[Rfam]
RNA sequence: CCAGCUCGAAGGCCAUGAAUGCUCAUCCCGUUACAGGUUGCUCCAUGCAUACCACAUUCAUGAGCGGGCUGAGGUCUGAGUAUUUUAAUCCCCCUUGAUCGGCUCUAGCAGGGCCUAGCUGUAAUCAGCUGCGCGACGUACCAGAAAAGCAGCUUCAUUUUCAUAUCCCCUAAGAUUCUGUUACCGCAGAGGAGGGGGAAAUUGAAAGCUUUGAAAGCGUCGCGGGGAUCGGGUGCAUCUAUAUCCAUUAUCUAGCAUUCAGUCGUCGCUAUCGCGCUUGCGCCUUGUGAAGAAGGCACCCAGGGACUUACUUGGGCAUCCCGCAGUUCGGCCAAGCUAUGUUAUGGAAACCAAUGUUGGUGCUUUGAAUUGCAAUCGUCAGAUCGAGGUAUGGUAUCCGAGGUGACGGCCACACCAUAUUGGUGCUUACCUCUGACGAAGUGGUUCACCUUGGCACCGAUGAAUUCCAGCUUAUGGCUAUAUAUGGCUGGAGACAAUCUCUCCUUGCGUAUGAGGUGGUGGCUGAUUGCAUGCGAUAUGGCAUACCUGUCUUCCUUGAGUUCACUUCGUGGCUCGCGUAUCCUUCGUGGAUCGUGAAACUCGAUUCAGACUACUCUCGGGCUGG
Numbered sequence: 001c002c003a004g005c006u007c008g009a010a011g012g013c014c015a016u017g018a019a020u021g022c023u024c025a026u027c028c029c030g031u032u033a034c035a036g037g038u039u040g041c042u043c044c045a046u047g048c049a050u051a052c053c054a055c056a057u058u059c060a061u062g063a064g065c066g067g068g069c070u071g072a073g074g075u076c077u078g079a080g081u082a083u084u085u086u087a088a089u090c091c092c093c094c095u096u097g098a099u100c101g102g103c104u105c106u107a108g109c110a111g112g113g114c115c116u117a118g119c120u121g122u123a124a125u126c127a128g129c130u131g132c133g134c135g136a137c138g139u140a141c142c143a144g145a146a147a148a149g150c151a152g153c154u155u156c157a158u159u160u161u162c163a164u165a166u167c168c169c170c171u172a173a174g175a176u177u178c179u180g181u182u183a184c185c186g187c188a189g190a191g192g193a194g195g196g197g198g199a200a201a202u203u204g205a206a207a208g209c210u211u212u213g214a215a216a217g218c219g220u221c222g223c224g225g226g227g228a229u230c231g232g233g234u235g236c237a238u239c240u241a242u243a244u245c246c247a248u249u250a251u252c253u254a255g256c257a258u259u260c261a262g263u264c265g266u267c268g269c270u271a272u273c274g275c276g277c278u279u280g281c282g283c284c285u286u287g288u289g290a291a292g293a294a295g296g297c298a299c300c301c302a303g304g305g306a307c308u309u310a311c312u313u314g315g316g317c318a319u320c321c322c323g324c325a326g327u328u329c330g331g332c333c334a335a336g337c338u339a340u341g342u343u344a345u346g347g348a349a350a351c352c353a354a355u356g357u358u359g360g361u362g363c364u365u366u367g368a369a370u371u372g373c374a375a376u377c378g379u380c381a382g383a384u385c386g387a388g389g390u391a392u393g394g395u396a397u398c399c400g401a402g403g404u405g406a407c408g409g410c411c412a413c414a415c416c417a418u419a420u421u422g423g424u425g426c427u428u429a430c431c432u433c434u435g436a437c438g439a440a441g442u443g444g445u446u447c448a449c450c451u452u453g454g455c456a457c458c459g460a461u462g463a464a465u466u467c468c469a470g471c472u473u474a475u476g477g478c479u480a481u482a483u484a485u486g487g488c489u490g491g492a493g494a495c496a497a498u499c500u501c502u503c504c505u506u507g508c509g510u511a512u513g514a515g516g517u518g519g520u521g522g523c524u525g526a527u528u529g530c531a532u533g534c535g536a537u538a539u540g541g542c543a544u545a546c547c548u549g550u551c552u553u554c555c556u557u558g559a560g561u562u563c564a565c566u567u568c569g570u571g572g573c574u575c576g577c578g579u580a581u582c583c584u585u586c587g588u589g590g591a592u593c594g595u596g597a598a599a600c601u602c603g604a605u606u607c608a609g610a611c612u613a614c615u616c617u618c619g620g621g622c623u624g625g
Base pairs, nucleotide, nucleotide: 001625002624003623004622007619008618009617012573013572014571015570016569017568018567020066021065022064023063024062036053037052038051039049040048041047076609077608078607079606080605091227092226093225094224101115102114103113104112105111116131117130118129119128120127121126133223134222135221136220137219138218139217152209153208154207574597575596576595577594578593

This 625-nucleotide RNA sequence from Rhizopogon vesiculosus belongs to the Rfam family "Nuclear RNase P". Ribonuclease P (RNase P) is a ubiquitous endoribonuclease, found in archaea, bacteria and eukarya as well as chloroplasts and mitochondria. On this family, see Frank et al., RNA 2000: "Phylogenetic-comparative analysis of the eukaryal ribonuclease P RNA". The organism belongs to Rhizopogon, within Eukaryota.